Shown here is a 63-nucleotide RNA sequence from Mycobacteroides abscessus, a member of the family "Mycobacterium sRNA Ms_IGR-8".
[Rfam]
RNA sequence: GUCUAGCACUUCCCCGAGGGUGAAGCCAGUGCGGAAUCUCAGCCGAUUUCCCGCACUGGUUUC
Numbered sequence: 001g002u003c004u005a006g007c008a009c010u011u012c013c014c015c016g017a018g019g020g021u022g023a024a025g026c027c028a029g030u031g032c033g034g035a036a037u038c039u040c041a042g043c044c045g046a047u048u049u050c051c052c053g054c055a056c057u058g059g060u061u062u063c
Base pairs, nucleotide, nucleotide: 022063023062024061025060026059027058028057029056030055031054032053033052034051035049039045